[Rfam]
RNA sequence: CUUCACCGAACCAAGCCACAACGGCCGUUCCUCCGACCGCCCUUGCCCGUACGUCGCCAACAACGCCUGCGCCUC
Numbered sequence: 001c002u003u004c005a006c007c008g009a010a011c012c013a014a015g016c017c018a019c020a021a022c023g024g025c026c027g028u029u030c031c032u033c034c035g036a037c038c039g040c041c042c043u044u045g046c047c048c049g050u051a052c053g054u055c056g057c058c059a060a061c062a063a064c065g066c067c068u069g070c071g072c073c074u075c
Stems, first nucleotide, its partner, number of pairs: 015025003031071001033069001038065002043060003047056001049054001
The record is a 75-nucleotide sequence from Actinobacteria bacterium OK074, which matches "ASpks TB sRNA" in Rfam. For this family Rfam cites "Identification of small RNAs in Mycobacterium tuberculosis" (Arnvig and Young, Mol Microbiol, 2009). By type it is an antisense RNA.